Rfam assigns this 95-nucleotide sequence from Lactuca sativa to the family "MIR396 microRNA precursor family". Pairs were carried over by alignment from the consensus structure, which was predicted with WAR. The match comes from Rfam's covariance-model search (80 bits). Taxonomically the source falls in Lactuca (Eukaryota, Streptophytina, Embryophyta, Tracheophyta).
[Rfam]
RNA sequence: CUUUCUGUUCUUCCACAGCUUUCUUGAACUGCAUGGUUCAACAUUGAUCUAUUCGAAUCUUUGCUGUUCAAUAAAGCUGUGGGAAGAUAGAGAGA
Numbered sequence: 001c002u003u004u005c006u007g008u009u010c011u012u013c014c015a016c017a018g019c020u021u022u023c024u025u026g027a028a029c030u031g032c033a034u035g036g037u038u039c040a041a042c043a044u045u046g047a048u049c050u051a052u053u054c055g056a057a058u059c060u061u062u063g064c065u066g067u068u069c070a071a072u073a074a075a076g077c078u079g080u081g082g083g084a085a086g087a088u089a090g091a092g093a094g095a
Stems, first nucleotide, its partner, number of pairs: 003092005013082003017078006024071004029066001031064003

The literature on the family includes a 2005 paper in Plant Cell by Sunkar et al., "Cloning and characterization of microRNAs from rice". Gene Ontology terms of the family: miRNA-mediated post-transcriptional gene silencing and RISC complex.